[Rfam]
RNA sequence: AGCCUCGUUCUAGAUGAAAAUGGGCACUGUCGCUCAUGGUGUCCAGAAAAAGUGAAUGUGGCUACACUGAGACGGGAGGCGGUUCCAUCACAGCAAGAUGACCGCAGGGGUGACCACGAGGCCCUAACAUCC
Numbered sequence: 001a002g003c004c005u006c007g008u009u010c011u012a013g014a015u016g017a018a019a020a021u022g023g024g025c026a027c028u029g030u031c032g033c034u035c036a037u038g039g040u041g042u043c044c045a046g047a048a049a050a051a052g053u054g055a056a057u058g059u060g061g062c063u064a065c066a067c068u069g070a071g072a073c074g075g076g077a078g079g080c081g082g083u084u085c086c087a088u089c090a091c092a093g094c095a096a097g098a099u100g101a102c103c104g105c106a107g108g109g110g111u112g113a114c115c116a117c118g119a120g121g122c123c124c125u126a127a128c129a130u131c132c
Stems, first nucleotide, its partner, number of pairs: 002062003006058003021045007072125001074124003086112004091107001
Rfam assigns this 132-nucleotide RNA sequence from Vulpes vulpes to the family "Small nucleolar RNA SNORA1". Rfam's curators write: ACA1 is a member of the H/ACA class of snoRNA that guide the sites of modification of uridines to pseudouridines. The base pairs follow the family's consensus structure, which was predicted with PFOLD. Gene Ontology terms of the family: RNA processing and nucleolus. The family's RNA type in Rfam is H/ACA-box small nucleolar RNA. The match comes from Rfam's covariance-model search (96 bits).